This 90-nucleotide sequence from Kutzneria kofuensis belongs to the Rfam family "ZMP/ZTP riboswitch aptamer (pfl RNA motif)". The base pairs follow the family's consensus structure, which is taken from published work. On this family, see Jones and Ferre-D'Amare, Nat Struct Mol Biol 2015: "Recognition of the bacterial alarmone ZMP through long-distance association of two RNA subdomains". A search with the family's covariance model found it, with a score of 50 bits.
RNA sequence: ACUCAGCGUCGCGACUGGCGUGUUGGGGUGGAAUCGACCACCGGGGAGCGACCGCAGUACACGGUGGCGUCGCGCGCCUGGGUGUCAGCU
Numbered sequence: 001a002c003u004c005a006g007c008g009u010c011g012c013g014a015c016u017g018g019c020g021u022g023u024u025g026g027g028g029u030g031g032a033a034u035c036g037a038c039c040a041c042c043g044g045g046g047a048g049c050g051a052c053c054g055c056a057g058u059a060c061a062c063g064g065u066g067g068c069g070u071c072g073c074g075c076g077c078c079u080g081g082g083u084g085u086c087a088g089c090u
Stems, first nucleotide, its partner, number of pairs: 004057001006055002008052005015045002017078005028041004067085005